[Rfam]
The family of this 367-nucleotide RNA from Actinomarinicola tropica is "Bacterial RNase P class A".
On this family, see Frank and Pace, Annu Rev Biochem 1998: "Ribonuclease P: unity and diversity in a tRNA processing ribozyme".
The source organism's lineage runs through Bacteria, Bacillati, Actinomycetota, Acidimicrobiales and Actinomarinicola.
A search with the family's covariance model found it, with a score of 221 bits.
Rfam describes the family as follows. Ribonuclease P (RNase P) is a ubiquitous endoribonuclease, found in archaea, bacteria and eukarya as well as chloroplasts and mitochondria. Its best characterised activity is the generation of mature 5'-ends of tRNAs by cleaving the 5'-leader elements of precursor-tRNAs. Cellular RNase Ps are ribonucleoproteins. RNA from bacterial RNase Ps retains its catalytic activity in the absence of the protein subunit, i.e. it is a ribozyme.
RNA sequence: UGAGUCGGCUGGGUGGCCGCGGCUCGGCAUGACCGGGUCGAGGAAGGUCGGGGCUCCGCAGGGCAGGGUGCUGGCUCGCGGCCAGUCGAGGUGACUCGCAGGACAGUGCCACAGAGAACAGACCGCCGAUGGCCCGAGCGAUCGGGCACAGGCAAGGGUGAAACGGUGCGGUAAGAGCGCACCAGCGCCCGGGGUGACCCGGGCGGCUAGGUAAACCCCACCCGGAGCAAGGCCAGACGUGGGUACGGGCGGCCCGUCCGCCCCGAGAGGGGCAGCCCACGGGUAGGCCGCACAGAUGGAUGGCCACCCAUCGGGAUCCCGGCAACGGGCCCGUGGACAGAACCCCGCCUACAGGCCGACUCACCGU
Numbered sequence: 001u002g003a004g005u006c007g008g009c010u011g012g013g014u015g016g017c018c019g020c021g022g023c024u025c026g027g028c029a030u031g032a033c034c035g036g037g038u039c040g041a042g043g044a045a046g047g048u049c050g051g052g053g054c055u056c057c058g059c060a061g062g063g064c065a066g067g068g069u070g071c072u073g074g075c076u077c078g079c080g081g082c083c084a085g086u087c088g089a090g091g092u093g094a095c096u097c098g099c100a101g102g103a104c105a106g107u108g109c110c111a112c113a114g115a116g117a118a119c120a121g122a123c124c125g126c127c128g129a130u131g132g133c134c135c136g137a138g139c140g141a142u143c144g145g146g147c148a149c150a151g152g153c154a155a156g157g158g159u160g161a162a163a164c165g166g167u168g169c170g171g172u173a174a175g176a177g178c179g180c181a182c183c184a185g186c187g188c189c190c191g192g193g194g195u196g197a198c199c200c201g202g203g204c205g206g207c208u209a210g211g212u213a214a215a216c217c218c219c220a221c222c223c224g225g226a227g228c229a230a231g232g233c234c235a236g237a238c239g240u241g242g243g244u245a246c247g248g249g250c251g252g253c254c255c256g257u258c259c260g261c262c263c264c265g266a267g268a269g270g271g272g273c274a275g276c277c278c279a280c281g282g283g284u285a286g287g288c289c290g291c292a293c294a295g296a297u298g299g300a301u302g303g304c305c306a307c308c309c310a311u312c313g314g315g316a317u318c319c320c321g322g323c324a325a326c327g328g329g330c331c332c333g334u335g336g337a338c339a340g341a342a343c344c345c346c347g348c349c350u351a352c353a354g355g356c357c358g359a360c361u362c363a364c365c366g367u
Stems, first nucleotide, its partner, number of pairs: 001363010011352001012308007020040008045350003049347005054227004064265001066223005071085005086100001087098004101218002106216002108212003123157002125153003130148002133145001165183006185207001186205008231289004239280006260273005